[Rfam]
RNA sequence: AAAUAGCCCCCUAUGUAUUGGAUCUUUGGCAGUUUUGGCCCCCAAGGCCACUUUUGACUUAGUCUUCGCUGACGUUUCACCCACAUCUCUUAAGUGAUGUGCCACGUGUCGACCAUUGUGGGUGCCACGUCAGCGAAGACUAAGUCAAAAGUGGCAUUGGGGGUCAAAACUGACAAAGAUCCAAUACAUAGGGGGUUGUUU
Numbered sequence: 001a002a003a004u005a006g007c008c009c010c011c012u013a014u015g016u017a018u019u020g021g022a023u024c025u026u027u028g029g030c031a032g033u034u035u036u037g038g039c040c041c042c043c044a045a046g047g048c049c050a051c052u053u054u055u056g057a058c059u060u061a062g063u064c065u066u067c068g069c070u071g072a073c074g075u076u077u078c079a080c081c082c083a084c085a086u087c088u089c090u091u092a093a094g095u096g097a098u099g100u101g102c103c104a105c106g107u108g109u110c111g112a113c114c115a116u117u118g119u120g121g122g123u124g125c126c127a128c129g130u131c132a133g134c135g136a137a138g139a140c141u142a143a144g145u146c147a148a149a150a151g152u153g154g155c156a157u158u159g160g161g162g163g164u165c166a167a168a169a170c171u172g173a174c175a176a177a178g179a180u181c182c183a184a185u186a187c188a189u190a191g192g193g194g195g196u197u198g199u200u201u
Base pairs, nucleotide, nucleotide: 001201002200004198005197006196007195008194012190013189014188015187016186017185018184019183020182021181022180023179024178025177026176027175028174030172031171032170033169034168035167036166037165038164039163040162041161042160043159044158045157072130073129075127078124079123080122081121082120083119084118085117
Rfam assigns this 201-nucleotide RNA from Medicago truncatula to the family "MIR2619 microRNA precursor family".